[Rfam]
RNA sequence: AUAAUGAAGCAUGAUGACAUUUUUGCUCUGACUCAUCCAUGGAGUCUAUGUUCAAUCCAACACUGAGCUUCAUUAA
Number, nucleotide and partner (000 for none) at each position: 001a000002u075003a074004a073005u072006g071007a070008a069009g068010c067011a000012u000013g000014a000015u000016g000017a000018c000019a000020u000021u000022u000023u000024u000025g000026c000027u000028c000029u000030g000031a000032c000033u000034c000035a000036u000037c000038c000039a000040u000041g000042g000043a000044g000045u000046c000047u000048a000049u000050g000051u000052u000053c000054a000055a000056u000057c000058c000059a000060a000061c000062a000063c000064u000065g000066a000067g010068c009069u008070u007071c006072a005073u004074u003075a002076a000

Small nucleolar RNA SNORD69: a 76-nucleotide sequence from Lepisosteus oculatus. Its family is annotated with nucleolus and RNA processing in the Gene Ontology. On this family, see Huttenhofer et al., EMBO J 2001: "RNomics: an experimental approach that identifies 201 candidates for novel, small, non-messenger RNAs in mouse". NCBI's taxonomy places the organism under Eukaryota, Euteleostomi, Actinopteri, Holostei, Lepisosteus. snoRNA HBII-210 belongs to the C/D family of snoRNAs. It is the human orthologue of the mouse MBII-210 and is predicted to guide the 2'O-ribose methylation of large 28S rRNA on residue G4464. The family's RNA type in Rfam is C/D-box small nucleolar RNA.